[Rfam]
RNA: ArsR-gov region gene B
RNA sequence: UCAGUUAUAGACAGUUCUUUUCCGACCAGAGCCACCAACUCUGUAGCGGAACAGUAAAAAAGCCGACCUCACCAGUCGGUUUUUUUAC
Number, nucleotide and partner (000 for none) at each position: 001u000002c000003a000004g000005u000006u000007a000008u000009a000010g000011a000012c000013a000014g000015u000016u000017c000018u000019u000020u000021u050022c049023c048024g047025a000026c000027c000028a000029g041030a040031g039032c000033c000034a000035c000036c000037a000038a000039c031040u030041c029042u000043g000044u000045a000046g000047c024048g023049g022050a021051a000052c000053a000054g000055u000056a085057a084058a083059a082060a081061a080062g000063c079064c078065g077066a076067c075068c000069u000070c000071a000072c000073c000074a000075g067076u066077c065078g064079g063080u061081u060082u059083u058084u057085u056086u000087a000088c000